[Rfam]
RNA sequence: GAAAUUCCCCAGGAUUUCUCGACCUAGUUCGUUGUUAUCUGGUGACUUGCGCUAACUGUUGCUUUGCGUAGAGAAUUUCUCUCCUUUGUUAAUUCUUUGACUUAGGGGUUUGAAGGUUGGGUCUACCUUUCGGGGGGAUAAAUUGUAACUUCCAACAAACAAGCAACAUG
Numbered sequence: 001g002a003a004a005u006u007c008c009c010c011a012g013g014a015u016u017u018c019u020c021g022a023c024c025u026a027g028u029u030c031g032u033u034g035u036u037a038u039c040u041g042g043u044g045a046c047u048u049g050c051g052c053u054a055a056c057u058g059u060u061g062c063u064u065u066g067c068g069u070a071g072a073g074a075a076u077u078u079c080u081c082u083c084c085u086u087u088g089u090u091a092a093u094u095c096u097u098u099g100a101c102u103u104a105g106g107g108g109u110u111u112g113a114a115g116g117u118u119g120g121g122u123c124u125a126c127c128u129u130u131c132g133g134g135g136g137g138a139u140a141a142a143u144u145g146u147a148a149c150u151u152c153c154a155a156c157a158a159a160c161a162a163g164c165a166a167c168a169u170g
Base pairs, nucleotide, nucleotide: 001079002078003077004076005075006074007073009071012040013039014038015037048070049069050068051067052066081108082107083106084105085104116156117155118154119153120152122138123137124136126135127134128133
Dot-bracket structure: (((((((.(..((((.....................)))).......(((((.............)))))).))))))).(((((..................))))).......(((((.(((.(((....)))))).............)))))..............